[Rfam]
RNA sequence: GGCUGGUCUGAGUGCAGUGGUCGUUUACAUCUAAUUGAUCACAACCAGUUACAGAUUUCUUUGUUCGUUCCCCACUCCCACUGCUUAAUUUGCCUAGCUUAAA
Numbered sequence: 001g002g003c004u005g006g007u008c009u010g011a012g013u014g015c016a017g018u019g020g021u022c023g024u025u026u027a028c029a030u031c032u033a034a035u036u037g038a039u040c041a042c043a044a045c046c047a048g049u050u051a052c053a054g055a056u057u058u059c060u061u062u063g064u065u066c067g068u069u070c071c072c073c074a075c076u077c078c079c080a081c082u083g084c085u086u087a088a089u090u091u092g093c094c095u096a097g098c099u100u101a102a103a
Base pairs, nucleotide, nucleotide: 001099002098003097004096005095006094008092010091011090016082017081018080019079020078023077029065031063033061034060
RNA: Y RNA
Organism: Pan troglodytes